[Rfam]
RNA sequence: AUCACUGCACCAUCAUAUUAUCUAAUCUUUCAGGAUCUUAUUCUUGGGAGAAUUUUUGCGUUCUUCCAGAGGUUACCAAUAAAAUAAACCCCCGGAAGUCCGCCUCCCGAGGGUUUUUUAGU
Numbered sequence: 001a002u003c004a005c006u007g008c009a010c011c012a013u014c015a016u017a018u019u020a021u022c023u024a025a026u027c028u029u030u031c032a033g034g035a036u037c038u039u040a041u042u043c044u045u046g047g048g049a050g051a052a053u054u055u056u057u058g059c060g061u062u063c064u065u066c067c068a069g070a071g072g073u074u075a076c077c078a079a080u081a082a083a084a085u086a087a088a089c090c091c092c093c094g095g096a097a098g099u100c101c102g103c104c105u106c107c108c109g110a111g112g113g114u115u116u117u118u119u120a121g122u
Base pairs, nucleotide, nucleotide: 009041012036013035014034019032043069044068046067047066048065049064050063051062083119084118086116087115088114089113090112091111093109094108095107097105098104
The family of this 122-nucleotide sequence from Psychromonas ingrahamii is "Histidine operon leader".
The sequence is in the family's curated seed alignment.
Lineage of the source: Bacteria > Pseudomonadota > Alteromonadales > Psychromonas > Psychromonas ingrahamii.